[Rfam]
Overview:
A member of the RNA family "MIR5269 microRNA precursor family" from Medicago truncatula, 79 nucleotides long. Gene Ontology terms of the family: RISC complex and miRNA-mediated post-transcriptional gene silencing. Taxonomically the source falls in Medicago (Eukaryota, Euphyllophyta, Mesangiospermae, Hologalegina).
RNA sequence: UUGGAUGAAAUCAUUCUAGGAUCUACACUUUGAAAUGGAACCCACAUAAAAUGGUGGAACAUGCAUUGAUUUCACCCAA
Numbered sequence: 001u002u003g004g005a006u007g008a009a010a011u012c013a014u015u016c017u018a019g020g021a022u023c024u025a026c027a028c029u030u031u032g033a034a035a036u037g038g039a040a041c042c043c044a045c046a047u048a049a050a051a052u053g054g055u056g057g058a059a060c061a062u063g064c065a066u067u068g069a070u071u072u073c074a075c076c077c078a079a
Stems, first nucleotide, its partner, number of pairs: 001079004006074008015065001017063002023057003026053002029050004